[Rfam]
RNA: Lysine riboswitch aptamer
RNA sequence: GAAUAAGAUUGAGGUUGCGACGUACAAGAGUCACAGGUCAGACGUGGUUUGUCACGAAUGAAGGCUUGUAAAAGGGUGCGUUGCCGAAAUUGGGUUGUGACAAACAACAGCUCGGUUGGGGCUUGGCUGAAUAAACCAAGCACUGUCGUAAAAGGAUGACUUUUACGGAGCGCUAUCGACUGA
Numbered sequence: 001g002a003a004u005a006a007g008a009u010u011g012a013g014g015u016u017g018c019g020a021c022g023u024a025c026a027a028g029a030g031u032c033a034c035a036g037g038u039c040a041g042a043c044g045u046g047g048u049u050u051g052u053c054a055c056g057a058a059u060g061a062a063g064g065c066u067u068g069u070a071a072a073a074g075g076g077u078g079c080g081u082u083g084c085c086g087a088a089a090u091u092g093g094g095u096u097g098u099g100a101c102a103a104a105c106a107a108c109a110g111c112u113c114g115g116u117u118g119g120g121g122c123u124u125g126g127c128u129g130a131a132u133a134a135a136c137c138a139a140g141c142a143c144u145g146u147c148g149u150a151a152a153a154g155g156a157u158g159a160c161u162u163u164u165a166c167g168g169a170g171c172g173c174u175a176u177c178g179a180c181u182g183a
Base pairs, nucleotide, nucleotide: 007177008176009175011173017084018083019082020081021080022079023078024077025076033069034068035067036066037065038064039063088117089116090115091114092113093112094111095110096109097108098107118144119143121141122140123139124138125137126136128134146168147167148166149165150164151163152162